[Rfam]
RNA sequence: AAAACGCAUUUUUGUAAGUCGCUCUGGAUAAGAGCAUCUGCUAAAUGCUGUAAA
Numbered sequence: 001a002a003a004a005c006g007c008a009u010u011u012u013u014g015u016a017a018g019u020c021g022c023u024c025u026g027g028a029u030a031a032g033a034g035c036a037u038c039u040g041c042u043a044a045a046u047g048c049u050g051u052a053a054a
Stems, first nucleotide, its partner, number of pairs: 013043001014041003021035005